Record summary:
Rfam assigns this 77-nucleotide sequence from Methylomonas sp. LL1 to the family "c-di-GMP-I riboswitch aptamer".
RNA sequence: AAAAUUAAAAGCUAAACCUAUCGUAAGGUAGGGACGGAAAGUCGCGGAUCCCUUACCCGGAAAGCCGGAUUACCGAA
Numbered sequence: 001a002a003a004a005u006u007a008a009a010a011g012c013u014a015a016a017c018c019u020a021u022c023g024u025a026a027g028g029u030a031g032g033g034a035c036g037g038a039a040a041g042u043c044g045c046g047g048a049u050c051c052c053u054u055a056c057c058c059g060g061a062a063a064g065c066c067g068g069a070u071u072a073c074c075g076a077a
Base pairs, nucleotide, nucleotide: 012037013036017032018031019030020029021028022027040071041070042069043068045067046066047065049061050060
The literature on the family includes a 2007 paper in Nucleic Acids Res by Weinberg et al., "Identification of 22 candidate structured RNAs in bacteria using the CMfinder comparative genomics pipeline". The family's consensus secondary structure is taken from published work. A search with the family's covariance model found it, with a score of 57 bits. The organism belongs to Methylomonas, within Bacteria.